Record summary
Bacterial RNase P class A: a 414-nucleotide RNA from Corynebacterium sp. HMSC08D02.
[Rfam]
RNA sequence: UGAGCCGGCCGGGCGACCGCGUCGCCCCGAACCGCCACACGCGUUGUGGCUGGCGGGGACCGAGGAAAGUCCGGACUCCACAGGGCACGGUGGUUGCUAACAGCAACCCGGAGCGAUCCGCGGGCAAGUGCAACAGAAAGUACACCGCCAACCCAGGCAACUGGGUGGGUAAGGGUGAAAGGGUGCGGUAAGAGCGCACCGGCAUGCACAGUGAUGUGCGUGGCCAGGUAAACCCCACCGGGAGCAAGGCAAGAACCACAGCCGCAAGGCUGGGGUCGUCGGACGUGAUGAGGCUGCCCGCCCAGUCCGAAGGUAGCUGCUUGAUGCGCCCAGCAAUGGGACGCACAGAUGGAUGGUUGCCGCCCGCGCCUACGGGCGCGGGUACAGAAUCCGGCUUAUAGGCUGGCUCAUUCG
Numbered sequence: 001u002g003a004g005c006c007g008g009c010c011g012g013g014c015g016a017c018c019g020c021g022u023c024g025c026c027c028c029g030a031a032c033c034g035c036c037a038c039a040c041g042c043g044u045u046g047u048g049g050c051u052g053g054c055g056g057g058g059a060c061c062g063a064g065g066a067a068a069g070u071c072c073g074g075a076c077u078c079c080a081c082a083g084g085g086c087a088c089g090g091u092g093g094u095u096g097c098u099a100a101c102a103g104c105a106a107c108c109c110g111g112a113g114c115g116a117u118c119c120g121c122g123g124g125c126a127a128g129u130g131c132a133a134c135a136g137a138a139a140g141u142a143c144a145c146c147g148c149c150a151a152c153c154c155a156g157g158c159a160a161c162u163g164g165g166u167g168g169g170u171a172a173g174g175g176u177g178a179a180a181g182g183g184u185g186c187g188g189u190a191a192g193a194g195c196g197c198a199c200c201g202g203c204a205u206g207c208a209c210a211g212u213g214a215u216g217u218g219c220g221u222g223g224c225c226a227g228g229u230a231a232a233c234c235c236c237a238c239c240g241g242g243a244g245c246a247a248g249g250c251a252a253g254a255a256c257c258a259c260a261g262c263c264g265c266a267a268g269g270c271u272g273g274g275g276u277c278g279u280c281g282g283a284c285g286u287g288a289u290g291a292g293g294c295u296g297c298c299c300g301c302c303c304a305g306u307c308c309g310a311a312g313g314u315a316g317c318u319g320c321u322u323g324a325u326g327c328g329c330c331c332a333g334c335a336a337u338g339g340g341a342c343g344c345a346c347a348g349a350u351g352g353a354u355g356g357u358u359g360c361c362g363c364c365c366g367c368g369c370c371u372a373c374g375g376g377c378g379c380g381g382g383u384a385c386a387g388a389a390u391c392c393g394g395c396u397u398a399u400a401g402g403c404u405g406g407c408u409c410a411u412u413c414g
Stems, first nucleotide, its partner, number of pairs: 001410010011399001012361007020062002025057003067397003071394005076244004083299004088240005093107005108122001109120004123235002128233002130229002145174002147170003151166006182200006202224001203222008248318003279310006290303001292302003325345004329340004

The base pairs follow the family's consensus structure, which is taken from published work. The family's RNA type in Rfam is ribozyme. It scores 251 bits against the family's covariance model.